[Rfam]
RNA sequence: AUGACAAUGGAUGGGAGAGACCGCCAGUAACUAAGAUUUAGGAAUGGGCGGCACCGAAGGAGCAAGCCGUUAUUUCCUGCCGGGAUAACGAGUAAUCUCUCAGGUAAACGUACCGCCAUUUGACG
Numbered sequence: 001a002u003g004a005c006a007a008u009g010g011a012u013g014g015g016a017g018a019g020a021c022c023g024c025c026a027g028u029a030a031c032u033a034a035g036a037u038u039u040a041g042g043a044a045u046g047g048g049c050g051g052c053a054c055c056g057a058a059g060g061a062g063c064a065a066g067c068c069g070u071u072a073u074u075u076c077c078u079g080c081c082g083g084g085a086u087a088a089c090g091a092g093u094a095a096u097c098u099c100u101c102a103g104g105u106a107a108a109c110g111u112a113c114c115g116c117c118a119u120u121u122g123a124c125g
Stems, first nucleotide, its partner, number of pairs: 006120005012115003021051004053105003056101002060099003066093002
Dot-bracket structure: .....(((((.(((......((((.......................)))).(((((..(((...((........................))...))))).))).......)))))))).....
Shown here is a 125-nucleotide RNA from Paenibacillus sp. JCM 10914, a member of the family "Glycine riboswitch aptamer". Rfam describes the family as follows. This family represents the bacterial glycine riboswitch. NCBI's taxonomy places the organism under Bacteria, Bacillati, Caryophanales, Paenibacillaceae, Paenibacillus.